[Rfam]
RNA sequence: AAGCCAGCCAUGAAUCUGCUAACCUGAAUGUGUUUCUGCAGAAACUUAAAAAACUGGCAAUAGUAAAGCCAUGUUACCAGCCUUAAGGACAUUGAAGUCCUUAAGGUCCCUGAAAAUGGCUAUAACA
Numbered sequence: 001a002a003g004c005c006a007g008c009c010a011u012g013a014a015u016c017u018g019c020u021a022a023c024c025u026g027a028a029u030g031u032g033u034u035u036c037u038g039c040a041g042a043a044a045c046u047u048a049a050a051a052a053a054c055u056g057g058c059a060a061u062a063g064u065a066a067a068g069c070c071a072u073g074u075u076a077c078c079a080g081c082c083u084u085a086a087g088g089a090c091a092u093u094g095a096a097g098u099c100c101u102u103a104a105g106g107u108c109c110c111u112g113a114a115a116a117u118g119g120c121u122a123u124a125a126c127a
Base pairs, nucleotide, nucleotide: 003058004057005056006055007054015042016041017040018039019038068120069119070118071117080107081106082105083104084103085102086101088099089098090097
The record is a 127-nucleotide RNA from Carlito syrichta, which matches "Small nucleolar RNA SNORA33" in Rfam. Rfam classes the family as an H/ACA-box small nucleolar RNA. It scores 138 bits against the family's covariance model. Gene Ontology terms of the family: RNA processing and nucleolus. ACA33 is a member of the H/ACA class of snoRNA that guide the sites of modification of uridines to pseudouridines.